[Rfam]
RNA: PyrR binding site
Organism: Evansella cellulosilytica
RNA sequence: UCAUCCUUUAAAAAAGUCCUGUGAGGCUUUCAAGGGUGGCACAUAAGAAGUUCUUAAAAAAGGACCUCUUACACUGUGUGUUAAGCACAGUGGUUUGU
Numbered sequence: 001u002c003a004u005c006c007u008u009u010a011a012a013a014a015a016g017u018c019c020u021g022u023g024a025g026g027c028u029u030u031c032a033a034g035g036g037u038g039g040c041a042c043a044u045a046a047g048a049a050g051u052u053c054u055u056a057a058a059a060a061a062g063g064a065c066c067u068c069u070u071a072c073a074c075u076g077u078g079u080g081u082u083a084a085g086c087a088c089a090g091u092g093g094u095u096u097g098u
Base pairs, nucleotide, nucleotide: 003037004036005035006034007033008032013030014029015028016027017026018025044071045070046069047068048067050065051064052063053062054061055060072092073091074090075089076088077087078086079085